[Rfam]
This 197-nucleotide RNA sequence from Ruminiclostridium cellulolyticum belongs to the Rfam family "Group II catalytic intron D1-D4-5". A reference for the family is Bonen and Vogel (2001), "The ins and outs of group II introns", Trends Genet. The match comes from Rfam's covariance-model search (178 bits). Lineage of the source: Bacteria > Bacillota > Oscillospiraceae > Ruminiclostridium > Ruminiclostridium cellulolyticum.

RNA sequence: GAGAACUGAUAAUCCAAGAGGUGGAAUGAUAGGGUAACGCCUUAAAACGCCUCCCCUGAUACUCCGACUGGCAUCUUCAAGAAAAAGUUUUUGUCAGAAGCUCGGUAAAGACGACUGAGAGAUACCGUAGUCUGCGUAAGUAGAACGAAAGCUGUUCAGAGGUGAAUGGUGUAUCCCAUAGGUCGGGGGUCUAUAAA
Numbered sequence: 001g002a003g004a005a006c007u008g009a010u011a012a013u014c015c016a017a018g019a020g021g022u023g024g025a026a027u028g029a030u031a032g033g034g035u036a037a038c039g040c041c042u043u044a045a046a047a048c049g050c051c052u053c054c055c056c057u058g059a060u061a062c063u064c065c066g067a068c069u070g071g072c073a074u075c076u077u078c079a080a081g082a083a084a085a086a087g088u089u090u091u092u093g094u095c096a097g098a099a100g101c102u103c104g105g106u107a108a109a110g111a112c113g114a115c116u117g118a119g120a121g122a123u124a125c126c127g128u129a130g131u132c133u134g135c136g137u138a139a140g141u142a143g144a145a146c147g148a149a150a151g152c153u154g155u156u157c158a159g160a161g162g163u164g165a166a167u168g169g170u171g172u173a174u175c176c177c178a179u180a181g182g183u184c185g186g187g188g189g190u191c192u193a194u195a196a197a
Stems, first nucleotide, its partner, number of pairs: 018053006031043004054189004064105004068097006112185005121175005126147003133142002151170008